[Rfam]
The record is a 117-nucleotide RNA sequence from Myotis lucifugus, which matches "Small nucleolar RNA SNORA77" in Rfam. The source organism's lineage runs through Eukaryota, Euteleostomi, Sarcopterygii, Tetrapoda and Myotis. Gene Ontology terms of the family: RNA processing and nucleolus. ACA63 (SNORA77) is a member of the H/ACA class of snoRNAs that guide the sites of modification of uridines to pseudouridines. It scores 88 bits against the family's covariance model. It is annotated as an H/ACA-box small nucleolar RNA. The literature on the family includes a 2006 paper in RNA by Schattner et al., "A computational screen for mammalian pseudouridylation guide H/ACA RNAs".

RNA sequence: GCAGACUCACUCUGCACCUGGAUGCAGUCCCAGGCAGAUGCUUUUUCCGUCUGCCACAGAAACAGCCCAGGGUACUGUGACCUGUCAAGGGUGAUGCAGGUGCCCAGGAACACAGGG
Numbered sequence: 001g002c003a004g005a006c007u008c009a010c011u012c013u014g015c016a017c018c019u020g021g022a023u024g025c026a027g028u029c030c031c032a033g034g035c036a037g038a039u040g041c042u043u044u045u046u047c048c049g050u051c052u053g054c055c056a057c058a059g060a061a062a063c064a065g066c067c068c069a070g071g072g073u074a075c076u077g078u079g080a081c082c083u084g085u086c087a088a089g090g091g092u093g094a095u096g097c098a099g100g101u102g103c104c105c106a107g108g109a110a111c112a113c114a115g116g117g
Base pairs, nucleotide, nucleotide: 001054002053003052004051005050006049014041015040016039018037019036020035023032024031067108068107070105071104072103073102075099076098077097078096079095082093085090